[Rfam]
RNA sequence: UCCAAGUAAAGUUCUGCAAUACACUUAGACUCUUAAUUGUUUGCAGUCAGUGCAUUACAGAACUUUGUUUUGGG
Numbered sequence: 001u002c003c004a005a006g007u008a009a010a011g012u013u014c015u016g017c018a019a020u021a022c023a024c025u026u027a028g029a030c031u032c033u034u035a036a037u038u039g040u041u042u043g044c045a046g047u048c049a050g051u052g053c054a055u056u057a058c059a060g061a062a063c064u065u066u067g068u069u070u071u072g073g074g
Base pairs, nucleotide, nucleotide: 004070005069006068007067008066009065010064011063012062013061014060015059016058022052023051024050025049028048029047030046031045